[Rfam]
RNA sequence: GCGGUUCCGGUUCACGGGCGCGAGAGCCCGACCCGGCGACC
Dot-bracket structure: ..(((.((((....(((((......)))))..))))..)))
Numbered sequence: 001g002c003g004g005u006u007c008c009g010g011u012u013c014a015c016g017g018g019c020g021c022g023a024g025a026g027c028c029c030g031a032c033c034c035g036g037c038g039a040c041c
Stems, first nucleotide, its partner, number of pairs: 003041003007036004015030005
This 41-nucleotide RNA belongs to the Rfam family "L31-Actinobacteria ribosomal protein leader". It is one of the family's seed sequences.